Shown here is a 135-nucleotide sequence from Laticauda laticaudata, a member of the family "Small nucleolar RNA SNORA5". NCBI's taxonomy places the organism under Eukaryota, Gnathostomata, Elapidae, Laticaudinae, Laticauda. Pairs were carried over by alignment from the consensus structure, which was predicted with RNAfold. ACA5 is a member of the H/ACA class of snoRNA that guide the sites of modification of uridines to pseudouridines.
[Rfam]
RNA sequence: UGCAGCCAUGUCAAAUUCAGUCCCUGCCUGCUCCGUGGUGGGAACUGGCCCUGAGGCUGCCACAUCAAAGCUGUAGUUCAUGGGCCCCUGGUUCACGUAGUUGGACCUGGGGAUAAAAAUAGGCUGCAGACAUGU
Numbered sequence: 001u002g003c004a005g006c007c008a009u010g011u012c013a014a015a016u017u018c019a020g021u022c023c024c025u026g027c028c029u030g031c032u033c034c035g036u037g038g039u040g041g042g043a044a045c046u047g048g049c050c051c052u053g054a055g056g057c058u059g060c061c062a063c064a065u066c067a068a069a070g071c072u073g074u075a076g077u078u079c080a081u082g083g084g085c086c087c088c089u090g091g092u093u094c095a096c097g098u099a100g101u102u103g104g105a106c107c108u109g110g111g112g113a114u115a116a117a118a119a120u121a122g123g124c125u126g127c128a129g130a131c132a133u134g135u
Base pairs, nucleotide, nucleotide: 002060003059004058005057018047019046020045021044023042024041025040026039027038028037073127074126075125076124077123078122085112086111087110090108091107